[Rfam]
RNA sequence: AUAUAAUUUUUAAACCAAUAGAAAUUAAUCUCUUAAUAUGGAAGAGAGUCUCUACGACAAACCUUAAAAUUGUCACAUUCUUUUUAAAAUUAUUUUCU
Numbered sequence: 001a002u003a004u005a006a007u008u009u010u011u012a013a014a015c016c017a018a019u020a021g022a023a024a025u026u027a028a029u030c031u032c033u034u035a036a037u038a039u040g041g042a043a044g045a046g047a048g049u050c051u052c053u054a055c056g057a058c059a060a061a062c063c064u065u066a067a068a069a070u071u072g073u074c075a076c077a078u079u080c081u082u083u084u085u086a087a088a089a090u091u092a093u094u095u096u097c098u
Stems, first nucleotide, its partner, number of pairs: 018084001020082002023079003029047006056074005

A member of the RNA family "Purine riboswitch aptamer" from Mycoplasma marinum, 98 nucleotides long. Lineage of the source: Bacteria > Bacillati > Mycoplasmatota > Mollicutes > Mycoplasma.